[Rfam]
RNA sequence: UAGUAAGGGCACACAGUGGAUGCCUUGGUACCAACAGGCGAUGAAGGACGUGGUAAGCUGCGAAAAGCGUCGGAGAGUGGCAAACACGCGUUGAUCCGGCGAUUUCCGAAUGGGGAAACCCGGCUCCAGUUAUAUGGAGUCAUUGUUGUCUGAAUGCAUAGGGCAGCAAAGCGACACCCAGGGAAGUGAAACAUCUCAGUACCUGGAGGAGUAGAAAGAAACCUCGAUUCCCGUAGUAGUGGCGAGCGAACUGGGAACAGCCUAAACCACAGCACUUGUGUUGUGGGGUUGCGGGACCGCAACGUGGGAUCUGGGCGGAUAGUGGAAUGUUCUGGAAAGCUCAUCCAUAGAGGGUGAUAGGCCCGUACACGAAAUCCAAACAGACCUUAGCGGUAUCCCAAGUAAGGCGGGACACGUGAAACCCCGUUUGAAUCCGGGAGGCCCACCUCCCAAGGCUAAAUACUCGUUGGUGACCGAUAGUGAACCAGUACCGUGAGGGAAAGGUGAAAAGUACCCCUGUUAGGGGAGUGAAAUAGUACCUGAAACUGUGUGCUUACAAA
Numbered sequence: 001u002a003g004u005a006a007g008g009g010c011a012c013a014c015a016g017u018g019g020a021u022g023c024c025u026u027g028g029u030a031c032c033a034a035c036a037g038g039c040g041a042u043g044a045a046g047g048a049c050g051u052g053g054u055a056a057g058c059u060g061c062g063a064a065a066a067g068c069g070u071c072g073g074a075g076a077g078u079g080g081c082a083a084a085c086a087c088g089c090g091u092u093g094a095u096c097c098g099g100c101g102a103u104u105u106c107c108g109a110a111u112g113g114g115g116a117a118a119c120c121c122g123g124c125u126c127c128a129g130u131u132a133u134a135u136g137g138a139g140u141c142a143u144u145g146u147u148g149u150c151u152g153a154a155u156g157c158a159u160a161g162g163g164c165a166g167c168a169a170a171g172c173g174a175c176a177c178c179c180a181g182g183g184a185a186g187u188g189a190a191a192c193a194u195c196u197c198a199g200u201a202c203c204u205g206g207a208g209g210a211g212u213a214g215a216a217a218g219a220a221a222c223c224u225c226g227a228u229u230c231c232c233g234u235a236g237u238a239g240u241g242g243c244g245a246g247c248g249a250a251c252u253g254g255g256a257a258c259a260g261c262c263u264a265a266a267c268c269a270c271a272g273c274a275c276u277u278g279u280g281u282u283g284u285g286g287g288g289u290u291g292c293g294g295g296a297c298c299g300c301a302a303c304g305u306g307g308g309a310u311c312u313g314g315g316c317g318g319a320u321a322g323u324g325g326a327a328u329g330u331u332c333u334g335g336a337a338a339g340c341u342c343a344u345c346c347a348u349a350g351a352g353g354g355u356g357a358u359a360g361g362c363c364c365g366u367a368c369a370c371g372a373a374a375u376c377c378a379a380a381c382a383g384a385c386c387u388u389a390g391c392g393g394u395a396u397c398c399c400a401a402g403u404a405a406g407g408c409g410g411g412a413c414a415c416g417u418g419a420a421a422c423c424c425c426g427u428u429u430g431a432a433u434c435c436g437g438g439a440g441g442c443c444c445a446c447c448u449c450c451c452a453a454g455g456c457u458a459a460a461u462a463c464u465c466g467u468u469g470g471u472g473a474c475c476g477a478u479a480g481u482g483a484a485c486c487a488g489u490a491c492c493g494u495g496a497g498g499g500a501a502a503g504g505u506g507a508a509a510a511g512u513a514c515c516c517c518u519g520u521u522a523g524g525g526g527a528g529u530g531a532a533a534u535a536g537u538a539c540c541u542g543a544a545a546c547u548g549u550g551u552g553c554u555u556a557c558a559a560a
Stems, first nucleotide, its partner, number of pairs: 007555010022540001023504002027475002029472007036464002038172002046107003049062003068101007077089003112121003122141007143169009177208001178206005188195002218225002228460001229256005239247002259457004267286007293399003297393004308386001310384004317377004322370003328343002332339001346350001352364003405429007436451005491498002514526004
RNA: Bacterial large subunit ribosomal RNA, nucleotides 9 to 568
Organism: uncultured bacterium AD249-B8